Shown here is a 177-nucleotide sequence from Thomasclavelia ramosa, a member of the family "Group II catalytic intron D1-D4-3".
It scores 105 bits against the family's covariance model.
About the family: Group II introns are found in rRNA, tRNA and mRNA of organelles in fungi, plants and protists, and also in mRNA in bacteria.
The organism belongs to Thomasclavelia ramosa, within Bacteria.
[Rfam]
RNA sequence: UCUAUCGUGAGGUGGAAUCUGAAAGAAGAUGGAGGCAAAAUCUUGGUCCGAGGAACAUGAAUCACAUCAGGCAUAUAAUGGGGACGAGUGUGCAAAGCAACAUGAAGUCAUAAGAGGUUGUGGAAUGAAACUAUUAUAUGUAAAUGUGGCAGAUAUAUGGAAGGAAAGAGAUAUGAC
Numbered sequence: 001u002c003u004a005u006c007g008u009g010a011g012g013u014g015g016a017a018u019c020u021g022a023a024a025g026a027a028g029a030u031g032g033a034g035g036c037a038a039a040a041u042c043u044u045g046g047u048c049c050g051a052g053g054a055a056c057a058u059g060a061a062u063c064a065c066a067u068c069a070g071g072c073a074u075a076u077a078a079u080g081g082g083g084a085c086g087a088g089u090g091u092g093c094a095a096a097g098c099a100a101c102a103u104g105a106a107g108u109c110a111u112a113a114g115a116g117g118u119u120g121u122g123g124a125a126u127g128a129a130a131c132u133a134u135u136a137u138a139u140g141u142a143a144a145u146g147u148g149g150c151a152g153a154u155a156u157a158u159g160g161a162a163g164g165a166a167a168g169a170g171a172u173a174u175g176a177c
Stems, first nucleotide, its partner, number of pairs: 001016006028177001030175002036168001041162001043160003046154003050150001062149005071141003075137007083109003088103004
Dot-bracket structure: ((((((....))))))...........(.((....(....(.((((((.(...........(((((....(((.(((((((.(((..((((........))))...))).....................))))))).)))...)))))).)))...))).).....).....)).)